This 81-nucleotide RNA from Parnassius apollo belongs to the Rfam family "Mammalian CPEB3 ribozyme". Rfam links the family to the GO term RNA nuclease activity. The base pairs follow the family's consensus structure, which is taken from published work.
[Rfam]
RNA sequence: UUAUUUGAAGUGGGGGUCAUUGUAGAAGCGUGGUCGUCGCGACCCCUGCCAGCCCAGCCCUUUCAGGGCUGCAAUUCUACA
Numbered sequence: 001u002u003a004u005u006u007g008a009a010g011u012g013g014g015g016g017u018c019a020u021u022g023u024a025g026a027a028g029c030g031u032g033g034u035c036g037u038c039g040c041g042a043c044c045c046c047u048g049c050c051a052g053c054c055c056a057g058c059c060c061u062u063u064c065a066g067g068g069c070u071g072c073a074a075u076u077c078u079a080c081a
Stems, first nucleotide, its partner, number of pairs: 013046006021081007028040003050071006